[Rfam]
RNA sequence: GGCAACGGGACGCAGCUCGACCGCCGGUCCAAGACAUGAUCGCCUUUAUCGAAGAGAAUAGAGAUAUCGGGGUCGAGGCGAUCUGCAAGCACCUGCCGAUUGCCCCA
Numbered sequence: 001g002g003c004a005a006c007g008g009g010a011c012g013c014a015g016c017u018c019g020a021c022c023g024c025c026g027g028u029c030c031a032a033g034a035c036a037u038g039a040u041c042g043c044c045u046u047u048a049u050c051g052a053a054g055a056g057a058a059u060a061g062a063g064a065u066a067u068c069g070g071g072g073u074c075g076a077g078g079c080g081a082u083c084u085g086c087a088a089g090c091a092c093c094u095g096c097c098g099a100u101u102g103c104c105c106c107a
Stems, first nucleotide, its partner, number of pairs: 007025002011023002069106004079102002082099002085096003

This 107-nucleotide RNA sequence from Pontivivens nitratireducens belongs to the Rfam family "ALIL pseudoknot". On this family, see Mazauric et al., J Biol Chem 2008: "Apical loop-internal loop RNA pseudoknots: a new type of stimulator of -1 translational frameshifting in bacteria". The match comes from Rfam's covariance-model search (58 bits).